[Rfam]
Nucleotides: 118
Base pairs, nucleotide, nucleotide: 001118002117003116004115005114006113007112008111013043014042015041016040017039021032022031023030026091027090028089029088044083045082046081047080049079050078052074053073054072087110092107093106094105095104096103
Number, partner (000 for none) and nucleotide at each position: 001118c002117u003116c004115u005114u006113a007112u008111c009000c010000a011000g012000a013043a014042a015041a016040g017039c018000u019000g020000a021032g022031g023030g024000a025000u026091c027090a028089g029088g030023c031022c032021c033000g034000a035000a036000g037000a038000c039017g040016c041015u042014u043013u044083g045082g046081c047080a048000a049079c050078c051000g052074u053073c054072c055000c056000g057000c058000a059000c060000u061000u062000c063000a064000c065000c066000g067000u068000g069000c070000g071000g072054g073053g074052a075000a076000a077000a078050g079049g080047u081046g082045c083044c084000a085000c086000u087110u088029c089028c090027u091026g092107c093106u094105c095104c096103g097000g098000u099000a100000a101000c102000a103096c104095g105094g106093g107092g108000a109000a110087a111008g112007a113006u114005g115004a116003g117002a118001g
SAM riboswitch aptamer (S box leader): a 118-nucleotide RNA from Fodinibius salipaludis. Rfam links the family to the GO term regulation of gene expression. From the family's description: The SAM riboswitch is found upstream of a number of genes which code for proteins involved in methionine or cysteine biosynthesis in Gram-positive bacteria.